[Rfam]
RNA sequence: UAUCCGUCACCCGCCAGCGAGAGUUCGCCCGCGGGUGCGUUUUGUG
Dot-bracket structure: .......(((((((..((((....))))..))))))).........
RNA: ffh sRNA
Organism: Rhodomicrobium vannielii